[Rfam]
RNA sequence: AAUUACAAAGAUAAAAACACUGUCUGGUUGGUAUUCCAGGCGCAGUUAUUAACUGUCAGUAACCUGCCUCCUUAGGUUGUCCUUUCUUUGGUAUUAUUUU
Numbered sequence: 001a002a003u004u005a006c007a008a009a010g011a012u013a014a015a016a017a018c019a020c021u022g023u024c025u026g027g028u029u030g031g032u033a034u035u036c037c038a039g040g041c042g043c044a045g046u047u048a049u050u051a052a053c054u055g056u057c058a059g060u061a062a063c064c065u066g067c068c069u070c071c072u073u074a075g076g077u078u079g080u081c082c083u084u085u086c087u088u089u090g091g092u093a094u095u096a097u098u099u100u
Stems, first nucleotide, its partner, number of pairs: 006090006022041006042056006066077004
Dot-bracket structure: .....((((((..........((((((........))))))((((((...)))))).........((((....)))).......))))))..........

azaaromatic riboswitch aptamer (yjdF RNA): a 100-nucleotide RNA from Thomasclavelia cocleata.
The source organism's lineage runs through Bacteria, Bacillati, Bacillota, Coprobacillaceae and Thomasclavelia.
The match comes from Rfam's covariance-model search (95 bits).